[Rfam]
RNA sequence: CUGAAAAUUACGCCGAAUCCCCGCCACGGGGAGCCGGGGAACCAACCAGCUUUUUCUGGGGUACAUCCUCCGCGAGAGCGUCACGCACACAGGUGCACGACGUGGAGCGGGCGAGGGAAGCUUCCGUACAUCCCAACCCGACAGCUAACCCGGUAGGCACACUGGAAGAUUUG
Numbered sequence: 001c002u003g004a005a006a007a008u009u010a011c012g013c014c015g016a017a018u019c020c021c022c023g024c025c026a027c028g029g030g031g032a033g034c035c036g037g038g039g040a041a042c043c044a045a046c047c048a049g050c051u052u053u054u055u056c057u058g059g060g061g062u063a064c065a066u067c068c069u070c071c072g073c074g075a076g077a078g079c080g081u082c083a084c085g086c087a088c089a090c091a092g093g094u095g096c097a098c099g100a101c102g103u104g105g106a107g108c109g110g111g112c113g114a115g116g117g118a119a120g121c122u123u124c125c126g127u128a129c130a131u132c133c134c135a136a137c138c139c140g141a142c143a144g145c146u147a148a149c150c151c152g153g154u155a156g157g158c159a160c161a162c163u164g165g166a167a168g169a170u171u172u173g
Stems, first nucleotide, its partner, number of pairs: 012158003018032005033154006043058002059139003068111003115134004
Overview:
The record is a 173-nucleotide sequence from Corynebacterium marinum, which matches "c-di-AMP riboswitch aptamer (ydaO/yuaA leader)" in Rfam. From the family's description: This family represents a conserved RNA structure found upstream of the ydaO and yuaA genes in Bacillus subtilis and related genes in other bacteria. The ydaO/yuaA element is thought to act as a genetic 'off' switch for the ydaO and yuaA genes in its native state. It is believed that the element may be triggered during osmotic shock leading to activation of ydaO, a predicted amino acid transporter gene, and members of the yuaA-yubG operon which code for KtrA and KtrB K+ transporters. It scores 61 bits against the family's covariance model.